[Rfam]
RNA sequence: UCCUGCCCCAUUCCCGGCCACGGUGUCACGCCUAUUGUCUCCGGUUCGGGCAA
Numbered sequence: 001u002c003c004u005g006c007c008c009c010a011u012u013c014c015c016g017g018c019c020a021c022g023g024u025g026u027c028a029c030g031c032c033u034a035u036u037g038u039c040u041c042c043g044g045u046u047c048g049g050g051c052a053a
Base pairs, nucleotide, nucleotide: 002023003022004020005019007017008016035053036052037051038050039049040048
The record is a 53-nucleotide RNA, which matches "Pseudomonas sRNA P10" in Rfam. The family's consensus secondary structure was predicted with WAR. On this family, see Livny et al., Nucleic Acids Res 2006: "Identification of 17 Pseudomonas aeruginosa sRNAs and prediction of sRNA-encoding genes in 10 diverse pathogens using the bioinformatic tool sRNAPredict2".